[Rfam]
RNA sequence: GGGUUUAUUUCGAAAAUCAGAUUUCGGCCGAAAUUUCGGAUGAAAUUUCGGAUUUCGAAGAUUCCGGAAUUUCGGCCGAAAUCUGAUUUUUUUUUUUA
Numbered sequence: 001g002g003g004u005u006u007a008u009u010u011c012g013a014a015a016a017u018c019a020g021a022u023u024u025c026g027g028c029c030g031a032a033a034u035u036u037c038g039g040a041u042g043a044a045a046u047u048u049c050g051g052a053u054u055u056c057g058a059a060g061a062u063u064c065c066g067g068a069a070u071u072u073c074g075g076c077c078g079a080a081a082u083c084u085g086a087u088u089u090u091u092u093u094u095u096u097u098a
Stems, first nucleotide, its partner, number of pairs: 013090006021082011033070008

About this RNA
A member of the RNA family "mir-283 microRNA precursor family" from Tetracentron sinense, 98 nucleotides long. The base pairs follow the family's consensus structure, which was predicted with WAR. The source organism's lineage runs through Eukaryota, Streptophyta, Magnoliopsida, Mesangiospermae and Tetracentron. Rfam links the family to the GO terms miRNA-mediated post-transcriptional gene silencing and RISC complex. A reference for the family is Aravin et al. (2003), "The small RNA profile during Drosophila melanogaster development", Dev Cell.